[Rfam]
RNA sequence: GGGCGUGUAGCUCAACGGUCAGAGCAGGGCGCUCAUAACGCCUUGGUUGGGGGUUCGAAUCCCUCCACGCCUA
Numbered sequence: 001g002g003g004c005g006u007g008u009a010g011c012u013c014a015a016c017g018g019u020c021a022g023a024g025c026a027g028g029g030c031g032c033u034c035a036u037a038a039c040g041c042c043u044u045g046g047u048u049g050g051g052g053g054u055u056c057g058a059a060u061c062c063c064u065c066c067a068c069g070c071c072u073a
Stems, first nucleotide, its partner, number of pairs: 001072007010025004027043005049065005
Record summary:
Shown here is a 73-nucleotide sequence from Paracoccus yeei, a member of the family "tRNA". The source organism's lineage runs through Bacteria, Pseudomonadati, Alphaproteobacteria, Paracoccaceae and Paracoccus. The family's consensus secondary structure is taken from published work. Its Rfam clan is "tRNA clan". It is annotated as a transfer RNA. A search with the family's covariance model found it, with a score of 70 bits. On this family, see Hou, Trends Biochem Sci 1993: "The tertiary structure of tRNA and the development of the genetic code".